Source information
A member of the RNA family "Bacterial small subunit ribosomal RNA" from Sulfobacillus acidophilus, 353 nucleotides of a longer RNA. Clan: SSU clan. The base pairs follow the family's consensus structure, which is taken from published work. Gene Ontology terms of the family: structural constituent of ribosome and ribosome. The source organism's lineage runs through Bacteria, Bacillati, Clostridia, Eubacteriales and Sulfobacillus acidophilus.

[Rfam]
RNA sequence: GGCGUAAAGGGCGUGUAGGCGGUUGCGCACGUAGCGGUUUUCAGCCGUCGGCUCACCCGACGGAGGGCGGCUAAACGGCGCAGCUCGAGGGCAGGAGAGGUGCAUGGAAUUCCUGGUGGAGCGGUGAAAUGCGUAGAGAUCAGGAAGAACACCGGUGGCGAAGGCGGUGCACUGGCCUGGCCCUGACGCUGAGGCGCGACAGCGUGGGGAGCGAACGGGAUUAGAUACCCCGGUAGUCCACGCCGUAAACGAUGGAUACGAGGUGUCGCGGGGGUCCACCCUGCGGUGCCGGAGCUAACGCACUCAGUAUCCCGCCUGGGGAGUACGGCCGCAAGGUUGAAACUCAAAGGAAU
Numbered sequence: 001g002g003c004g005u006a007a008a009g010g011g012c013g014u015g016u017a018g019g020c021g022g023u024u025g026c027g028c029a030c031g032u033a034g035c036g037g038u039u040u041u042c043a044g045c046c047g048u049c050g051g052c053u054c055a056c057c058c059g060a061c062g063g064a065g066g067g068c069g070g071c072u073a074a075a076c077g078g079c080g081c082a083g084c085u086c087g088a089g090g091g092c093a094g095g096a097g098a099g100g101u102g103c104a105u106g107g108a109a110u111u112c113c114u115g116g117u118g119g120a121g122c123g124g125u126g127a128a129a130u131g132c133g134u135a136g137a138g139a140u141c142a143g144g145a146a147g148a149a150c151a152c153c154g155g156u157g158g159c160g161a162a163g164g165c166g167g168u169g170c171a172c173u174g175g176c177c178u179g180g181c182c183c184u185g186a187c188g189c190u191g192a193g194g195c196g197c198g199a200c201a202g203c204g205u206g207g208g209g210a211g212c213g214a215a216c217g218g219g220a221u222u223a224g225a226u227a228c229c230c231c232g233g234u235a236g237u238c239c240a241c242g243c244c245g246u247a248a249a250c251g252a253u254g255g256a257u258a259c260g261a262g263g264u265g266u267c268g269c270g271g272g273g274g275u276c277c278a279c280c281c282u283g284c285g286g287u288g289c290c291g292g293a294g295c296u297a298a299c300g301c302a303c304u305c306a307g308u309a310u311c312c313c314g315c316c317u318g319g320g321g322a323g324u325a326c327g328g329c330c331g332c333a334a335g336g337u338u339g340a341a342a343c344u345c346a347a348a349g350g351a352a353u
Stems, first nucleotide, its partner, number of pairs: 001316003009313001011197004016191001018190003022084007030077002032073004037068004045063007088184003092179004099173007106150001110146008121132003158165002202243006211237002216232004254312006262290012294301002318345003327338004